RNA sequence: CAGGCAUGCUGGAGUCUCGCCAGCGGCGCCUGGGCGUGCGCCCGACACCCGACGAGACAUGA
Numbered sequence: 001c002a003g004g005c006a007u008g009c010u011g012g013a014g015u016c017u018c019g020c021c022a023g024c025g026g027c028g029c030c031u032g033g034g035c036g037u038g039c040g041c042c043c044g045a046c047a048c049c050c051g052a053c054g055a056g057a058c059a060u061g062a
Stems, first nucleotide, its partner, number of pairs: 012060001014058006025049002031044005

Rfam assigns this 62-nucleotide RNA from Nitratireductor mangrovi to the family "ybhL leader".
Gene Ontology term of the family: regulation of gene expression.
The base pairs follow the family's consensus structure.
Rfam describes the family as follows. This family is a putative regulatory RNA structure that is found upstream of an uncharacterized membrane protein in alpha-proteobacteria.
A search with the family's covariance model found it, with a score of 56 bits.
A reference for the family is Corbino et al. (2005), "Evidence for a second class of S-adenosylmethionine riboswitches and other regulatory RNA motifs in alpha-proteobacteria", Genome Biol.